This 166-nucleotide RNA sequence from Tolumonas auensis belongs to the Rfam family "FMN riboswitch aptamer (RFN element)". For this family Rfam cites "Regulation of riboflavin biosynthesis and transport genes in bacteria by transcriptional and translational attenuation" (Vitreschak et al., Nucleic Acids Res, 2002). The family's consensus secondary structure is taken from published work. Rfam describes the family as follows. The RFN element is a highly conserved domain that is found frequently in the 5'-untranslated regions of prokaryotic mRNAs that encode for flavin mononucleotide (FMN) biosynthesis and transport proteins. This element is a metabolite-dependent riboswitch that directly binds FMN in the absence of proteins. In Bacillus subtilis, the riboswitch most likely controls gene expression by causing premature transcription termination within the 5' untranslated region of the ribDEAHT operon and precluding access to the ribosome-binding site of ypaA mRNA.The FMN riboswitch structure, reported in present an FMN-bound six-stem junction, adopts a butterfly-like scaffold, stapled together by opposingly directed but nearly identically folded peripheral domains.
[Rfam]
RNA sequence: GCAUAUUCUCAGGGCGGGGUGAAAGUCCCCACCGGCGGUAAACAGUCUGAAGAGGUCUUCAACUGAAAGCCCGCGAGCGGUUGAUGCGUUUUAUGACGUAUUGAUGUCAGCAGAUCCGGUGUAAUUCCGGAGCCGACGGUUAUAGUCCGGACGGAAGAGGAUACAA
Numbered sequence: 001g002c003a004u005a006u007u008c009u010c011a012g013g014g015c016g017g018g019g020u021g022a023a024a025g026u027c028c029c030c031a032c033c034g035g036c037g038g039u040a041a042a043c044a045g046u047c048u049g050a051a052g053a054g055g056u057c058u059u060c061a062a063c064u065g066a067a068a069g070c071c072c073g074c075g076a077g078c079g080g081u082u083g084a085u086g087c088g089u090u091u092u093a094u095g096a097c098g099u100a101u102u103g104a105u106g107u108c109a110g111c112a113g114a115u116c117c118g119g120u121g122u123a124a125u126u127c128c129g130g131a132g133c134c135g136a137c138g139g140u141u142a143u144a145g146u147c148c149g150g151a152c153g154g155a156a157g158a159g160g161a162u163a164c165a166a
Base pairs, nucleotide, nucleotide: 004163005162006161007160008159009158010157017029018028019027031146032145033135034134035074036073037072038071069133070132077111078110115131116130117129118128119127137149138148139147